[Rfam]
This 93-nucleotide RNA from Acetoanaerobium sticklandii belongs to the Rfam family "Selenocysteine transfer RNA".
NCBI's taxonomy places the organism under Bacteria, Bacillati, Clostridia, Acetoanaerobium, Acetoanaerobium sticklandii.
A reference for the family is Mizutani and Goto (2000), "Eukaryotic selenocysteine tRNA has the 9/4 secondary structure", FEBS Lett.
RNA sequence: GGGAGUAGAUGGGUGCUGGUGUGUCCUCUGGUCUUCAAAACCAGUUUGAGGGGUUAGGAGCCUCUUAGGUAGGUUCGAUUCCUACAUACUCCC
Numbered sequence: 001g002g003g004a005g006u007a008g009a010u011g012g013g014u015g016c017u018g019g020u021g022u023g024u025c026c027u028c029u030g031g032u033c034u035u036c037a038a039a040a041c042c043a044g045u046u047u048g049a050g051g052g053g054u055u056a057g058g059a060g061c062c063u064c065u066u067a068g069g070u071a072g073g074u075u076c077g078a079u080u081c082c083u084a085c086a087u088a089c090u091c092c093c
Stems, first nucleotide, its partner, number of pairs: 001093007008085001011026006028044005047067005070084004